[Rfam]
RNA sequence: ACAUCAUCAAGAGCAGCAGAGGGACUGGCCCUGUGAAGCUGCGGCAACCUUCCGGAGGGAAAGGUGCCAAUUCCAGCAGAGUAUAUCUGACAGAUGAAUG
Numbered sequence: 001a002c003a004u005c006a007u008c009a010a011g012a013g014c015a016g017c018a019g020a021g022g023g024a025c026u027g028g029c030c031c032u033g034u035g036a037a038g039c040u041g042c043g044g045c046a047a048c049c050u051u052c053c054g055g056a057g058g059g060a061a062a063g064g065u066g067c068c069a070a071u072u073c074c075a076g077c078a079g080a081g082u083a084u085a086u087c088u089g090a091c092a093g094a095u096g097a098a099u100g
Stems, first nucleotide, its partner, number of pairs: 004097005013042005021031003025076004043068004048064002050060004072092001077089004

Shown here is a 100-nucleotide sequence from Megasphaera cerevisiae, a member of the family "SAM riboswitch aptamer (S box leader)". From the family's description: The SAM riboswitch is found upstream of a number of genes which code for proteins involved in methionine or cysteine biosynthesis in Gram-positive bacteria. Lineage of the source: Bacteria > Negativicutes > Veillonellales > Veillonellaceae > Megasphaera cerevisiae. The family's consensus secondary structure is taken from published work. The match comes from Rfam's covariance-model search (86 bits).